[Rfam]
RNA sequence: CCUGCUGUACGACCAGCAGUAGCCUAGGAGGACAUGCGUCACUGGCAACGGUGGGGUGUGAAGCUCUUCUGACAAUGUAGCCCCCGGACGUUUCGGGCAGGUCGGUUCCGCGAGGAGGCGGUCUGGAUACUCCUAGCAGCAAGGGGGUAAGGCG
Numbered sequence: 001c002c003u004g005c006u007g008u009a010c011g012a013c014c015a016g017c018a019g020u021a022g023c024c025u026a027g028g029a030g031g032a033c034a035u036g037c038g039u040c041a042c043u044g045g046c047a048a049c050g051g052u053g054g055g056g057u058g059u060g061a062a063g064c065u066c067u068u069c070u071g072a073c074a075a076u077g078u079a080g081c082c083c084c085c086g087g088a089c090g091u092u093u094c095g096g097g098c099a100g101g102u103c104g105g106u107u108c109c110g111c112g113a114g115g116a117g118g119c120g121g122u123c124u125g126g127a128u129a130c131u132c133c134u135a136g137c138a139g140c141a142a143g144g145g146g147g148u149a150a151g152g153c154g
Base pairs, nucleotide, nucleotide: 002019003018004017005016006015007014028069029068030067031066032065033060034059035058036057037056039054040053041052042051043050044049083097084096085095086094087093088092098125099124100123101122108115109114130146131145132144133143134142
Dot-bracket structure: .((((((......))))))........((((((((((.((((((....)))))).)))))....))))).............((((((...))))))((((......((....))......))))....(((((.......)))))........